[Rfam]
RNA sequence: AAAUAUGAGGCAGUGUCAUAGCCAAUGAGAUUCUGCCGAGGCGUGACUAUUGCUAGUUGAAACUUUUUUCCACAGCAUCUUCAAUAUUUAUUUUAUUUCAGUGUUAGCUAUCGUCGAAUGAAAAAUCCUAUAUUUUUUAGUCAAUGUUUGACACCGCGCCAUCCUAGAUUCAAAGUG
Numbered sequence: 001a002a003a004u005a006u007g008a009g010g011c012a013g014u015g016u017c018a019u020a021g022c023c024a025a026u027g028a029g030a031u032u033c034u035g036c037c038g039a040g041g042c043g044u045g046a047c048u049a050u051u052g053c054u055a056g057u058u059g060a061a062a063c064u065u066u067u068u069u070c071c072a073c074a075g076c077a078u079c080u081u082c083a084a085u086a087u088u089u090a091u092u093u094u095a096u097u098u099c100a101g102u103g104u105u106a107g108c109u110a111u112c113g114u115c116g117a118a119u120g121a122a123a124a125a126u127c128c129u130a131u132a133u134u135u136u137u138u139a140g141u142c143a144a145u146g147u148u149u150g151a152c153a154c155c156g157c158g159c160c161a162u163c164c165u166a167g168a169u170u171c172a173a174a175g176u177g
Stems, first nucleotide, its partner, number of pairs: 015047005021042003029037001031035001082140001083138002086135001089132003155177003
RNA: U4 spliceosomal RNA